[Rfam]
RNA sequence: AUUCCGGUUGAUCCUGCCGGAGGCCAUUGCUAUUGGGAUCCGAUUUAGCCAUGCUAGUCGUACGAGUUCACACUCGUGGCGAAUAGCUCAGUAACACGUGGCCAAACUACCCUUCGGAGCGCAAUACCCUCGGGAAACUGAGGCUAAUAGCGCAUACCAUACCACCACUGGAAUGAGUGGUAUGCCAAACGCUCCGGCGCCGAAGGAUGUGGCUGCGGCCGAUUAGGUAGACGGUGGGGUAACGGCCCACCGUGCCAAUAAUCGGUAUGGGUCAUGAGAGUGAGAACCCAGAGACGGAAUCUGAGACAAGAUUCCGGGCCCUACGGGGCGCAGCAGGCGCGAAACCUUUACACUGCACGACAGUGCGAUAGGGGGAUCCCAAGUGCACAGGCAUAGCGCCUGUGCUUUUCGACACCCUAAGGCGGUGUCAGAAUAAGGGCUGGGCAAGACCGGUGCCAGCCGCCGCGGUAAUACCGGCAGCCCAAGUGAUGGCCGAUCUUAUUG
Numbered sequence: 001a002u003u004c005c006g007g008u009u010g011a012u013c014c015u016g017c018c019g020g021a022g023g024c025c026a027u028u029g030c031u032a033u034u035g036g037g038a039u040c041c042g043a044u045u046u047a048g049c050c051a052u053g054c055u056a057g058u059c060g061u062a063c064g065a066g067u068u069c070a071c072a073c074u075c076g077u078g079g080c081g082a083a084u085a086g087c088u089c090a091g092u093a094a095c096a097c098g099u100g101g102c103c104a105a106a107c108u109a110c111c112c113u114u115c116g117g118a119g120c121g122c123a124a125u126a127c128c129c130u131c132g133g134g135a136a137a138c139u140g141a142g143g144c145u146a147a148u149a150g151c152g153c154a155u156a157c158c159a160u161a162c163c164a165c166c167a168c169u170g171g172a173a174u175g176a177g178u179g180g181u182a183u184g185c186c187a188a189a190c191g192c193u194c195c196g197g198c199g200c201c202g203a204a205g206g207a208u209g210u211g212g213c214u215g216c217g218g219c220c221g222a223u224u225a226g227g228u229a230g231a232c233g234g235u236g237g238g239g240u241a242a243c244g245g246c247c248c249a250c251c252g253u254g255c256c257a258a259u260a261a262u263c264g265g266u267a268u269g270g271g272u273c274a275u276g277a278g279a280g281u282g283a284g285a286a287c288c289c290a291g292a293g294a295c296g297g298a299a300u301c302u303g304a305g306a307c308a309a310g311a312u313u314c315c316g317g318g319c320c321c322u323a324c325g326g327g328g329c330g331c332a333g334c335a336g337g338c339g340c341g342a343a344a345c346c347u348u349u350a351c352a353c354u355g356c357a358c359g360a361c362a363g364u365g366c367g368a369u370a371g372g373g374g375g376a377u378c379c380c381a382a383g384u385g386c387a388c389a390g391g392c393a394u395a396g397c398g399c400c401u402g403u404g405c406u407u408u409u410c411g412a413c414a415c416c417c418u419a420a421g422g423c424g425g426u427g428u429c430a431g432a433a434u435a436a437g438g439g440c441u442g443g444g445c446a447a448g449a450c451c452g453g454u455g456c457c458a459g460c461c462g463c464c465g466c467g468g469u470a471a472u473a474c475c476g477g478c479a480g481c482c483c484a485a486g487u488g489a490u491g492g493c494c495g496a497u498c499u500u501a502u503u504g
Stems, first nucleotide, its partner, number of pairs: 004020005022494010033382009042340001048338003052335003057080003062077006087293003097217007106210002111206007119153004128143006158184008168175001191198002219265003226256003231253008268290004272283004295316006318329004346372001348371003354367005385405008411429006437483006450477004459466002
The family of this 504-nucleotide part of an RNA from Halorubrum tebenquichense is "Archaeal small subunit ribosomal RNA". The source organism's lineage runs through Archaea, Methanobacteriati, Halobacteriales, Haloferacaceae and Halorubrum. The sequence is in the family's curated seed alignment. Rfam links the family to the GO terms structural constituent of ribosome and ribosome. On this family, see Yusupov et al., Science 2001: "Crystal structure of the ribosome at 5.5 A resolution".